[Rfam]
RNA sequence: UGAGCUGGCCAGGCGACCGCGUGGCUCCCUCGGGGGCCCCGAGGAACGUCCGGGCUCCGUAGAGCAGGGUGAUGGCUAACGGCCACCCGGGGUGACCCGCGGGACAGUGCCACAGAGAGAAGACCGCCACGUUCCUUCGGGGGCGGGGUAAGGGUGAAAGGGUGAGGUAAGAGCUCACCGCGCGACUGGUGACAGGAGCGGCAAGGUAAACCCCACCCGGAGCAAGACCAGACAGCAUGCGUUCGAGGGCUGCUCGCCCGAGCAUGCGGGUAGGUUGCUUGAGCGCUGGAGCAAUCCAGGGCCUAGAUGGAUGGUCGCCCCUCGUUCCCGGUGACGGGUGCGAGAGACAGAACCCGGCGUAUCGGCCAGCUCAUCCG
Numbered sequence: 001u002g003a004g005c006u007g008g009c010c011a012g013g014c015g016a017c018c019g020c021g022u023g024g025c026u027c028c029c030u031c032g033g034g035g036g037c038c039c040c041g042a043g044g045a046a047c048g049u050c051c052g053g054g055c056u057c058c059g060u061a062g063a064g065c066a067g068g069g070u071g072a073u074g075g076c077u078a079a080c081g082g083c084c085a086c087c088c089g090g091g092g093u094g095a096c097c098c099g100c101g102g103g104a105c106a107g108u109g110c111c112a113c114a115g116a117g118a119g120a121a122g123a124c125c126g127c128c129a130c131g132u133u134c135c136u137u138c139g140g141g142g143g144c145g146g147g148g149u150a151a152g153g154g155u156g157a158a159a160g161g162g163u164g165a166g167g168u169a170a171g172a173g174c175u176c177a178c179c180g181c182g183c184g185a186c187u188g189g190u191g192a193c194a195g196g197a198g199c200g201g202c203a204a205g206g207u208a209a210a211c212c213c214c215a216c217c218c219g220g221a222g223c224a225a226g227a228c229c230a231g232a233c234a235g236c237a238u239g240c241g242u243u244c245g246a247g248g249g250c251u252g253c254u255c256g257c258c259c260g261a262g263c264a265u266g267c268g269g270g271u272a273g274g275u276u277g278c279u280u281g282a283g284c285g286c287u288g289g290a291g292c293a294a295u296c297c298a299g300g301g302c303c304u305a306g307a308u309g310g311a312u313g314g315u316c317g318c319c320c321c322u323c324g325u326u327c328c329c330g331g332u333g334a335c336g337g338g339u340g341c342g343a344g345a346g347a348c349a350g351a352a353c354c355c356g357g358c359g360u361a362u363c364g365g366c367c368a369g370c371u372c373a374u375c376c377g
Stems, first nucleotide, its partner, number of pairs: 001373010011362001012319007020041002023038006046360003050357005055222004062255004067218005073085004087101001088099004102213002107211002109207003124153002126149003130145006161179006180202001181200003186195003226276004235267006247259004283302002286299005
Notes:
The family of this 377-nucleotide RNA sequence from Demequina mangrovi is "Bacterial RNase P class A". Taxonomically the source falls in Demequina (Bacteria, Actinomycetota, Micrococcales, Demequinaceae). The family's RNA type in Rfam is ribozyme. The base pairs follow the family's consensus structure, which is taken from published work.